[Rfam]
RNA sequence: UAGAAACUGCGUAACUGACGGAAGUGGAAGAAACCACGGGGAGCGCAGUAGGAUUUGUAAGCCGACCGUCUGGGUAACCGUU
Numbered sequence: 001u002a003g004a005a006a007c008u009g010c011g012u013a014a015c016u017g018a019c020g021g022a023a024g025u026g027g028a029a030g031a032a033a034c035c036a037c038g039g040g041g042a043g044c045g046c047a048g049u050a051g052g053a054u055u056u057g058u059a060a061g062c063c064g065a066c067c068g069u070c071u072g073g074g075u076a077a078c079c080g081u082u
Stems, first nucleotide, its partner, number of pairs: 006049007015040002017070005024037004061075003
Background
Rfam assigns this 82-nucleotide RNA from Desulfosporosinus cupriresistens to the family "ZMP/ZTP riboswitch aptamer (pfl RNA motif)". NCBI's taxonomy places the organism under Bacteria, Bacillati, Eubacteriales, Desulfitobacteriaceae, Desulfosporosinus.